[Rfam]
RNA sequence: UUUGGAGCUGAUUGUCCAAACGCAAUUUUUGAGUCUGCCUAAUGCUAAUCCAGGAGUUGUGUAUGGACAUCAUUCUUCAGA
Numbered sequence: 001u002u003u004g005g006a007g008c009u010g011a012u013u014g015u016c017c018a019a020a021c022g023c024a025a026u027u028u029u030u031g032a033g034u035c036u037g038c039c040u041a042a043u044g045c046u047a048a049u050c051c052a053g054g055a056g057u058u059g060u061g062u063a064u065g066g067a068c069a070u071c072a073u074u075c076u077u078c079a080g081a
Base pairs, nucleotide, nucleotide: 002080003079004078005077006076007075009072010071011070012069014068015067016066017065018064021061022060023059024058025057026056027055028054029053030052031051
RNA: mir-219 microRNA precursor family